Streptomyces sRNA 4677: a 276-nucleotide RNA from Streptomyces fuscichromogenes.
It is annotated as a small RNA.
Rfam's curators write: Located in the intergenic region between anti-sigma factor SCO4677 gene and a putative regulatory protein gene SCO4676. scr4677 expression requires the SCO4677 activity and scr4677 sRNA itself seem to affect the levels of the SCO4676-associated transcripts.
A reference for the family is Hindra et al. (2014), "Complex intra-operonic dynamics mediated by a small RNA in Streptomyces coelicolor", PLoS One.
A search with the family's covariance model found it, with a score of 93 bits.
The family has 12 seed sequences and 563 matches in Rfam 15.1.
The organism belongs to Streptomyces, within Bacteria.
RNA sequence: CGAGGCGGUGACGCCCGACGCCAAGUAGUUAAAAAACCCCAGGGAAAUCCCCCUACCCAACCCCACCCGCCUCCCCGCCGUCGUCCGUCACCCUCCGGAGUGAACAUGGCCAACUGGGCUGGAUUUGGUGCCGGUUGUCCGGCAUAUGCUCACCGCGACAACACCGGGUGACCAUGCGAGCACGCAGACGGCCCGCCCCCGCACAUACGACGGCCCCCGGCCGGGACUAGCGAUCCCGAUCGAGGGCCUGACCACCUAGGAAGCAACACCUUCCCG
Numbered sequence: 001c002g003a004g005g006c007g008g009u010g011a012c013g014c015c016c017g018a019c020g021c022c023a024a025g026u027a028g029u030u031a032a033a034a035a036a037c038c039c040c041a042g043g044g045a046a047a048u049c050c051c052c053c054u055a056c057c058c059a060a061c062c063c064c065a066c067c068c069g070c071c072u073c074c075c076c077g078c079c080g081u082c083g084u085c086c087g088u089c090a091c092c093c094u095c096c097g098g099a100g101u102g103a104a105c106a107u108g109g110c111c112a113a114c115u116g117g118g119c120u121g122g123a124u125u126u127g128g129u130g131c132c133g134g135u136u137g138u139c140c141g142g143c144a145u146a147u148g149c150u151c152a153c154c155g156c157g158a159c160a161a162c163a164c165c166g167g168g169u170g171a172c173c174a175u176g177c178g179a180g181c182a183c184g185c186a187g188a189c190g191g192c193c194c195g196c197c198c199c200c201g202c203a204c205a206u207a208c209g210a211c212g213g214c215c216c217c218c219g220g221c222c223g224g225g226a227c228u229a230g231c232g233a234u235c236c237c238g239a240u241c242g243a244g245g246g247c248c249u250g251a252c253c254a255c256c257u258a259g260g261a262a263g264c265a266a267c268a269c270c271u272u273c274c275c276g
Base pairs, nucleotide, nucleotide: 007256008255009254010253020075088103089102090101091100093098118181119180120174121173122172212248213247214246215245216244218242219241223237224236225235226234259274260273261272262271263270